[Rfam]
RNA sequence: GGUUUCCUUUGGUGCAAAUCCAAUCACCUAGAUUGGAAUUGGAAGAAGCAAUUCCCCCAUUGGUAGCAAAUGGUUAUCCAUUAAGCGGAGGGGAUAGUA
Numbered sequence: 001g002g003u004u005u006c007c008u009u010u011g012g013u014g015c016a017a018a019u020c021c022a023a024u025c026a027c028c029u030a031g032a033u034u035g036g037a038a039u040u041g042g043a044a045g046a047a048g049c050a051a052u053u054c055c056c057c058c059a060u061u062g063g064u065a066g067c068a069a070a071u072g073g074u075u076a077u078c079c080a081u082u083a084a085g086c087g088g089a090g091g092g093g094a095u096a097g098u099a
Stems, first nucleotide, its partner, number of pairs: 009023004054090001057088002059081002062078006
Overview
Rfam assigns this 99-nucleotide RNA sequence from Monachather paradoxus to the family "Plastid-rps12 3UTR RNA". Rfam's curators put it in the seed alignment. Rfam classes the family as a cis-regulatory element. The family has 1,299 seed sequences and 1,710 matches in Rfam 15.1. A reference for the family is Richter et al. (2023), "Retrograde signaling in plants: A critical review focusing on the GUN pathway and beyond", Plant Commun. About the family: Plastid rpl20 is a non-coding RNA (ncRNA) recognised in plastids. It was found in the three prime untranslated region (3UTR) of rps12 gene, its 3UTR location sugest a role in transcript maduration. Lineage of the source: Eukaryota > Streptophyta > Streptophytina > Poaceae > Monachather.